[Rfam]
RNA: FMN riboswitch aptamer (RFN element)
Organism: Cellulosilyticum lentocellum
RNA sequence: AUAAAUCUUCAGGGCAGGGUGUGAUUCCCUACCGGCGGUAAAGCCCGCGAGCCUAAAUGGUAUGAUUCGGUGAGAUUCCGAAGCCGACAGUAUAGUCUGGAUGAAAGAAGAUAAAU
Dot-bracket structure: ....((((((......(((.......))).[[((((((....[[))))....(......).....(((((.......)))))]])).(((....]]))).......))))))....